Annotation:
Shown here is a 577-nucleotide part of an RNA from Candidatus Methanobinarius endosymbioticus, a member of the family "Archaeal large subunit ribosomal RNA". The source organism's lineage runs through Archaea, Methanobacteriati, Methanobacteriota, Methanobacteriaceae and Candidatus Methanobinarius.

RNA sequence: CUUCCAUUGGGAAGCGAAGACCCCGUAGAGUUUUACUGCAGUCUGCUGUUGAGGCUUGGUCAUGGGUAUGCAGAGUAGGUGGGAGAAAUCGAUUCUGAGUCGCAAGGUUUAGAUGAUUCGAUCCUGAGACACCACCUUCUCAUGACUGUGUCUCUAACUCUUUAUGAGAACACCGGUAGAUAGGCAGUUCGGCUGGGGCGGCACGCGCUUGAAAAGGUAUCAAGCGCGCCCUAAGGUCAACUCAGGUGGGACAGAGAUCCACCGUAGAGUGCAAGGGCAAAAGUUGGCCUGACUGAAUUUCGAUCAGUAAGAAAUUCAGGAGCGAAAGCUGGGCCUAGCGAACCUCAAAGUCCUCCUUGAUGGGGGCUUGAGAUGACAGAAAAACUACCUCGGGGAUAACUGGGUGGUCGCAGGCAAGAGCCCAUAUCGACCCUGCGGCUUGCUACUUCGAUGUCGGUUCUUUCCAUCCUGGGUGUGCAGCAGCACCCAAGGGUGGGGUUGUUCGCCCAUUAAAGGGGAACGUGAGCUGGGUUUAGACCGUCGUGAGACAGGUUGGUUGCUAUCUAAUGGAAGUGUU
Numbered sequence: 001c002u003u004c005c006a007u008u009g010g011g012a013a014g015c016g017a018a019g020a021c022c023c024c025g026u027a028g029a030g031u032u033u034u035a036c037u038g039c040a041g042u043c044u045g046c047u048g049u050u051g052a053g054g055c056u057u058g059g060u061c062a063u064g065g066g067u068a069u070g071c072a073g074a075g076u077a078g079g080u081g082g083g084a085g086a087a088a089u090c091g092a093u094u095c096u097g098a099g100u101c102g103c104a105a106g107g108u109u110u111a112g113a114u115g116a117u118u119c120g121a122u123c124c125u126g127a128g129a130c131a132c133c134a135c136c137u138u139c140u141c142a143u144g145a146c147u148g149u150g151u152c153u154c155u156a157a158c159u160c161u162u163u164a165u166g167a168g169a170a171c172a173c174c175g176g177u178a179g180a181u182a183g184g185c186a187g188u189u190c191g192g193c194u195g196g197g198g199c200g201g202c203a204c205g206c207g208c209u210u211g212a213a214a215a216g217g218u219a220u221c222a223a224g225c226g227c228g229c230c231c232u233a234a235g236g237u238c239a240a241c242u243c244a245g246g247u248g249g250g251a252c253a254g255a256g257a258u259c260c261a262c263c264g265u266a267g268a269g270u271g272c273a274a275g276g277g278c279a280a281a282a283g284u285u286g287g288c289c290u291g292a293c294u295g296a297a298u299u300u301c302g303a304u305c306a307g308u309a310a311g312a313a314a315u316u317c318a319g320g321a322g323c324g325a326a327a328g329c330u331g332g333g334c335c336u337a338g339c340g341a342a343c344c345u346c347a348a349a350g351u352c353c354u355c356c357u358u359g360a361u362g363g364g365g366g367c368u369u370g371a372g373a374u375g376a377c378a379g380a381a382a383a384a385c386u387a388c389c390u391c392g393g394g395g396a397u398a399a400c401u402g403g404g405u406g407g408u409c410g411c412a413g414g415c416a417a418g419a420g421c422c423c424a425u426a427u428c429g430a431c432c433c434u435g436c437g438g439c440u441u442g443c444u445a446c447u448u449c450g451a452u453g454u455c456g457g458u459u460c461u462u463u464c465c466a467u468c469c470u471g472g473g474u475g476u477g478c479a480g481c482a483g484c485a486c487c488c489a490a491g492g493g494u495g496g497g498g499u500u501g502u503u504c505g506c507c508c509a510u511u512a513a514a515g516g517g518g519a520a521c522g523u524g525a526g527c528u529g530g531g532u533u534u535a536g537a538c539c540g541u542c543g544u545g546a547g548a549c550a551g552g553u554u555g556g557u558u559g560c561u562a563u564c565u566a567a568u569g570g571a572a573g574u575g576u577u
Base pairs, nucleotide, nucleotide: 001573002572003571004570005569006568007567008566010565011564012563014560015559022394023393024392025391027390028389029386030385031384032383033382035188036187037186038185042180043179044178045177046176047175048174051154052153053152054151055150057148058147059146060145061144062143063142064141065140066139068137078136079135080134081133082132085119086118087117097110098109099108100107101106158168159167160166191204192202193201194200205227206226207225208224209223210222230333231332236288237287238286239285240284241283242268243267245263246262247261248260249259250258269278270277293319294318295317296316297315298314299313300312301311321330323328344372345371346370347369348368350367352366353365354364355363403444404443405442407441408438409437410436411435412434413433414432418428419427455530456528457527458526459525460522461519462518463517464516465515468493469492472487473486474485475484476483496508497507498506499505536554537553538552539551540549541548542547
Dot-bracket structure: ((((((((.(((.((......((((.(((((((.((((...(((((((..(((((.((((((((((.(.........(((((..(((.........(((((....)))))......)))............)))))).)))))))))).)))))...(((.....))).....)))))))....))))..((((.....))).)((((((...........))))))..((....((((((((.((((((.......))))))...))((......))....))))))....(((((((((.........))))))))).(.(....).).))..........(((((.(.((((.......)))))))))).........)))))..))))))........(((.((((((((...((.......))...)))))))..))))..........(((((((((((..((..(((((......)))))....))..((((.....))))......)))))..)..)))).).....(((((((....))).))))....))..)))))))))))....